[Rfam]
RNA sequence: CCCAGGGCUAACGCCCUGGGCUGUAGGAUUUCGCCCCCUUGGGGCU
Numbered sequence: 001c002c003c004a005g006g007g008c009u010a011a012c013g014c015c016c017u018g019g020g021c022u023g024u025a026g027g028a029u030u031u032c033g034c035c036c037c038c039u040u041g042g043g044g045c046u
Stems, first nucleotide, its partner, number of pairs: 001020008033045005